[Rfam]
RNA: FMN riboswitch aptamer (RFN element)
Organism: Stenotrophomonas terrae
RNA sequence: AAACGUCUUCAGGGCGGGGUGCAACUCCCCACCGGCGGUAGGUACAACGCUCCCGAUGGGGCUGCUGUACGAGCCCGCGAGCGCUCCAGCAAGGCCCGCACAGCAGUGCGGUUACCCGGCGGAGGUCAGCAGAUCCGGUCAGAUGCCGGAGCCGACGGUCAUAGUCCGGAUGAAAGAAGACGGUG
Numbered sequence: 001a002a003a004c005g006u007c008u009u010c011a012g013g014g015c016g017g018g019g020u021g022c023a024a025c026u027c028c029c030c031a032c033c034g035g036c037g038g039u040a041g042g043u044a045c046a047a048c049g050c051u052c053c054c055g056a057u058g059g060g061g062c063u064g065c066u067g068u069a070c071g072a073g074c075c076c077g078c079g080a081g082c083g084c085u086c087c088a089g090c091a092a093g094g095c096c097c098g099c100a101c102a103g104c105a106g107u108g109c110g111g112u113u114a115c116c117c118g119g120c121g122g123a124g125g126u127c128a129g130c131a132g133a134u135c136c137g138g139u140c141a142g143a144u145g146c147c148g149g150a151g152c153c154g155a156c157g158g159u160c161a162u163a164g165u166c167c168g169g170a171u172g173a174a175a176g177a178a179g180a181c182g183g184u185g
Base pairs, nucleotide, nucleotide: 004182005181006180007179008178009177010176017029018028019027031165032164033154034153035078036077037076038075073152074151081130082129134150135149136148137147138146156168157167158166